[Rfam]
RNA: U2 spliceosomal RNA
RNA sequence: ACAACUUCUCCUGCUACCCCGUCCGGGUAAAGCUAACUAUAGAACAGGCUUAGAUCAAGUGUAGUAUCUGUUCUUUUCAGUUUAAUCUCUGAAAUGGCUCUCCGGAGCCCAUUUUUUUGGUUAUCGCUAUUUUUGUUUACCCUGGGGGUCUUGCCUCUUGCAUGCUAUGCUUGAUCUCCACUGUGUCGCUGGUAUUGCACUGUCUCCGGCUGAUGCGAAGAACU
Numbered sequence: 001a002c003a004a005c006u007u008c009u010c011c012u013g014c015u016a017c018c019c020c021g022u023c024c025g026g027g028u029a030a031a032g033c034u035a036a037c038u039a040u041a042g043a044a045c046a047g048g049c050u051u052a053g054a055u056c057a058a059g060u061g062u063a064g065u066a067u068c069u070g071u072u073c074u075u076u077u078c079a080g081u082u083u084a085a086u087c088u089c090u091g092a093a094a095u096g097g098c099u100c101u102c103c104g105g106a107g108c109c110c111a112u113u114u115u116u117u118u119g120g121u122u123a124u125c126g127c128u129a130u131u132u133u134u135g136u137u138u139a140c141c142c143u144g145g146g147g148g149u150c151u152u153g154c155c156u157c158u159u160g161c162a163u164g165c166u167a168u169g170c171u172u173g174a175u176c177u178c179c180a181c182u183g184u185g186u187c188g189c190u191g192g193u194a195u196u197g198c199a200c201u202g203u204c205u206c207c208g209g210c211u212g213a214u215g216c217g218a219a220g221a222a223c224u
Stems, first nucleotide, its partner, number of pairs: 007054003013049003075094006096109005144179007158167001160165001182217006188210005